This 92-nucleotide sequence from Dactylosporangium siamense belongs to the Rfam family "Actinobacteria sRNA Ms_AS-4". The pairing is the family consensus, mapped onto this sequence. NCBI's taxonomy places the organism under Bacteria, Bacillati, Actinomycetota, Actinomycetes, Dactylosporangium. The literature on the family includes a 2013 paper in RNA by Li et al., "Identification of small RNAs in Mycobacterium smegmatis using heterologous Hfq".
[Rfam]
RNA sequence: UUUGGUGUCGGCGAACCGCUUCGGGGCGUCACCGAACUCGCCGAGGACCCGGGCGCCGAGGACCACCGGAACAUCCGCCAACGUCCGGCGAU
Numbered sequence: 001u002u003u004g005g006u007g008u009c010g011g012c013g014a015a016c017c018g019c020u021u022c023g024g025g026g027c028g029u030c031a032c033c034g035a036a037c038u039c040g041c042c043g044a045g046g047a048c049c050c051g052g053g054c055g056c057c058g059a060g061g062a063c064c065a066c067c068g069g070a071a072c073a074u075c076c077g078c079c080a081a082c083g084u085c086c087g088g089c090g091a092u
Base pairs, nucleotide, nucleotide: 008044009043010042011041012040013039018038020036021035022034023033024032055089056088057087060086061085062084063083